[Rfam]
RNA: rpsB sRNA
RNA sequence: CACACGUAAGGCAUGGGAUUGUCCGGGAGAAAUCCGGAUCGUUCCGCCCGGUGGCAUCUUCGAAGAGGAUGCUGUUCGCCUUGCGGAGGUUCAACCGGAAAAGGAUAAAAAGGC
Numbered sequence: 001c002a003c004a005c006g007u008a009a010g011g012c013a014u015g016g017g018a019u020u021g022u023c024c025g026g027g028a029g030a031a032a033u034c035c036g037g038a039u040c041g042u043u044c045c046g047c048c049c050g051g052u053g054g055c056a057u058c059u060u061c062g063a064a065g066a067g068g069a070u071g072c073u074g075u076u077c078g079c080c081u082u083g084c085g086g087a088g089g090u091u092c093a094a095c096c097g098g099a100a101a102a103g104g105a106u107a108a109a110a111a112g113g114c
Stems, first nucleotide, its partner, number of pairs: 001088001003086001005085007016045002024036002027034001053073009